[Rfam]
RNA sequence: CAUUAAGAGAUUACCUCUGUCGUUACUUGCGUAUGCAAAUACGGGAAUGCAAUUGCUGA
Numbered sequence: 001c002a003u004u005a006a007g008a009g010a011u012u013a014c015c016u017c018u019g020u021c022g023u024u025a026c027u028u029g030c031g032u033a034u035g036c037a038a039a040u041a042c043g044g045g046a047a048u049g050c051a052a053u054u055g056c057u058g059a
Stems, first nucleotide, its partner, number of pairs: 009054004014049001020044004027038003
RNA: Transposase-1 RNA